Shown here is a 76-nucleotide RNA sequence from Anolis carolinensis, a member of the family "Small nucleolar RNA SNORD103/SNORD85". The literature on the family includes a 2001 paper in EMBO J by Huttenhofer et al., "RNomics: an experimental approach that identifies 201 candidates for novel, small, non-messenger RNAs in mouse". By type it is a C/D-box small nucleolar RNA. Rfam 15.1 lists 1,349 matches to the family in 595 species.
[Rfam]
Nucleotides: 076
Stems, first nucleotide, its partner, number of pairs: 001076006
Number, partner (000 for none) and nucleotide at each position: 001076u002075c003074u004073g005072g006071c007000g008000a009000u010000g011000a012000u013000g014000a015000c016000a017000c018000u019000c020000u021000u022000g023000c024000c025000c026000u027000c028000a029000c030000u031000g032000a033000g034000a035000a036000c037000g038000c039000u040000g041000u042000u043000c044000c045000g046000u047000a048000u049000u050000g051000a052000u053000g054000a055000u056000c057000c058000u059000c060000u061000u062000a063000u064000g065000u066000g067000c068000u069000g070000a071006g072005c073004u074003a075002g076001a